This 185-nucleotide RNA sequence from Alteribacillus bidgolensis belongs to the Rfam family "Group II catalytic intron D1-D4-5". The pairing is the family consensus, mapped onto this sequence. The match comes from Rfam's covariance-model search (84 bits). The family has 139 seed sequences and 720 matches in Rfam 15.1. Its family is annotated with Group II intron splicing in the Gene Ontology. Rfam describes the family as follows. Group II introns are found in rRNA, tRNA and mRNA of organelles in fungi, plants and protists, and also in mRNA in bacteria. The literature on the family includes a 2003 paper in Crit Rev Biochem Mol Biol by Lehmann and Schmidt, "Group II introns: structure and catalytic versatility of large natural ribozymes".
RNA sequence: CCUAACUUUACAACUGAGGAUGGGAAUGACGGAACCAUGUUUCCCGAAACCAUCCCGUCAACACUCCUGCAUGCGUCGUAACGGACAGGUUACGGGGUUUGAAGUACAGGUAGAUUCGGCAGAACGAAGGCUGGAGCCACUUAGAAAGAGAAGGUAUGCCGACGGAUAUGCCGCACGGCUGAAAA
Numbered sequence: 001c002c003u004a005a006c007u008u009u010a011c012a013a014c015u016g017a018g019g020a021u022g023g024g025a026a027u028g029a030c031g032g033a034a035c036c037a038u039g040u041u042u043c044c045c046g047a048a049a050c051c052a053u054c055c056c057g058u059c060a061a062c063a064c065u066c067c068u069g070c071a072u073g074c075g076u077c078g079u080a081a082c083g084g085a086c087a088g089g090u091u092a093c094g095g096g097g098u099u100u101g102a103a104g105u106a107c108a109g110g111u112a113g114a115u116u117c118g119g120c121a122g123a124a125c126g127a128a129g130g131c132u133g134g135a136g137c138c139a140c141u142u143a144g145a146a147a148g149a150g151a152a153g154g155u156a157u158g159c160c161g162a163c164g165g166a167u168a169u170g171c172c173g174c175a176c177g178g179c180u181g182a183a184a185a
Base pairs, nucleotide, nucleotide: 018055019054020053021052022051023050031045032044034042056177057176058175066110067109068108069107070101071100073098074097076095077094078093079092080091081090082089117173118172119171120170121169125164126163129160130159131144132143133142149157151155